[Rfam]
RNA sequence: UGCUGCCUCCCGCCUGGAAGACUAGUGAUUUUGUUGUUCUGUCUUGAGGGAAACAAGAAAUCACUAUCUUCGGACGGUGGGCAGCC
Number, nucleotide and partner (000 for none) at each position: 001u000002g085003c084004u083005g082006c081007c080008u079009c000010c077011c076012g075013c000014c073015u072016g071017g070018a000019a069020g068021a067022c000023u000024a000025g064026u063027g062028a061029u060030u059031u058032u000033g000034u056035u055036g054037u053038u052039c000040u000041g000042u000043c000044u000045u000046g000047a000048g000049g000050g000051a000052a038053a037054c036055a035056a034057g000058a031059a030060a029061u028062c027063a026064c025065u000066a000067u021068c020069u019070u017071c016072g015073g014074a000075c012076g011077g010078u000079g008080g007081g006082c005083a004084g003085c002086c000
A member of the RNA family "mir-7 microRNA precursor family" from Haemaphysalis longicornis, 86 nucleotides long.
This family represents the microRNA (miRNA) precursor mir-7.